Small nucleolar RNA SNORA42/SNORA80 family: a 132-nucleotide RNA from Pipistrellus kuhlii. Rfam 15.1 lists 1,535 matches to the family in 183 species. Its family is annotated with nucleolus and RNA processing in the Gene Ontology. It is annotated as an H/ACA-box small nucleolar RNA. The match comes from Rfam's covariance-model search (116 bits). For this family Rfam cites "A computational screen for mammalian pseudouridylation guide H/ACA RNAs" (Schattner et al., RNA, 2006). The base pairs follow the family's consensus structure, which was predicted with RNAalifold.
RNA sequence: GCACGGGUUCCCAUGGAUGGCAGGCCCGUCCCCCUGGGUCUCUCAUAUGCCCCGUGCCAGAGCAAACUGCAGCCUCGAACCAUUGCCCGGCCUCUGCCCGUGGGCUGCAGGCACUGAAGCGGUUGCAAAGGG
Numbered sequence: 001g002c003a004c005g006g007g008u009u010c011c012c013a014u015g016g017a018u019g020g021c022a023g024g025c026c027c028g029u030c031c032c033c034c035u036g037g038g039u040c041u042c043u044c045a046u047a048u049g050c051c052c053c054g055u056g057c058c059a060g061a062g063c064a065a066a067c068u069g070c071a072g073c074c075u076c077g078a079a080c081c082a083u084u085g086c087c088c089g090g091c092c093u094c095u096g097c098c099c100g101u102g103g104g105c106u107g108c109a110g111g112c113a114c115u116g117a118a119g120c121g122g123u124u125g126c127a128a129a130g131g132g
Base pairs, nucleotide, nucleotide: 001057002056003055004054005052006051007050008049017046018045019044020043022041023040024039025037026036070125071124072123073122074121081116082115086111087110088107089106090105091104092103093102
Background
Rfam's curators write: The members of this family belong to the H/ACA class of snoRNAs that guide the sites of modification of uridines to pseudouridines.